Source information
Rfam assigns this 121-nucleotide sequence from Chara braunii to the family "Small nucleolar RNA SNORD14". The family has 18 seed sequences and 4,559 matches in Rfam 15.1. Rfam describes the family as follows. U14 small nucleolar RNA (U14 snoRNA) is required for early cleavages of eukaryotic precursor rRNAs. In yeasts, this molecule possess a stem-loop region (known as the Y-domain) which is essential for function. A similar structure, but with a different consensus sequence, is found in plants, but is absent in vertebrates. NCBI's taxonomy places the organism under Eukaryota, Viridiplantae, Streptophyta, Characeae, Chara. It is annotated as a C/D-box small nucleolar RNA. The literature on the family includes a 1996 paper in Nucleic Acids Res by Samarsky et al., "An essential domain in Saccharomyces cerevisiae U14 snoRNA is absent in vertebrates, but conserved in other yeasts".
RNA sequence: UGCUGAUGAUGAGAAUUCCGAAUGGCUUCUCUCAAAACAUUCGCAGCGGCCGCCCGAGAGUUUUUGUCGUGCCUGGCUUGAGAACUGAUGCGGUUUGAUCCUUCCUUGGAUGUCUGAGACA
Number, nucleotide and partner (000 for none) at each position: 001u121002g120003c000004u118005g000006a000007u000008g000009a000010u000011g000012a000013g000014a000015a000016u000017u000018c000019c000020g000021a000022a000023u000024g000025g000026c000027u000028u000029c000030u000031c000032u000033c000034a000035a000036a000037a000038c000039a000040u000041u000042c000043g000044c000045a000046g000047c000048g000049g000050c000051c000052g000053c000054c000055c000056g000057a000058g000059a000060g085061u084062u083063u082064u081065u080066g000067u000068c000069g000070u000071g000072c000073c000074u000075g000076g000077c000078u000079u000080g065081a064082g063083a062084a061085c060086u000087g000088a000089u000090g000091c000092g000093g000094u000095u000096u000097g000098a000099u000100c000101c000102u000103u000104c000105c000106u000107u000108g000109g000110a000111u000112g000113u000114c000115u000116g000117a000118g004119a000120c002121a001